[Rfam]
RNA sequence: AACCGAAUUCCCGGAGUUCCCUCUCCGGGAAGAUACAAUAAAUUAAGAUUAAGUGGUAGGAAUCAACGAGCAUGUUGCAAUA
Numbered sequence: 001a002a003c004c005g006a007a008u009u010c011c012c013g014g015a016g017u018u019c020c021c022u023c024u025c026c027g028g029g030a031a032g033a034u035a036c037a038a039u040a041a042a043u044u045a046a047g048a049u050u051a052a053g054u055g056g057u058a059g060g061a062a063u064c065a066a067c068g069a070g071c072a073u074g075u076u077g078c079a080a081u082a
Base pairs, nucleotide, nucleotide: 008031009030010029011028012027013026014025015024016023064077065076066075067074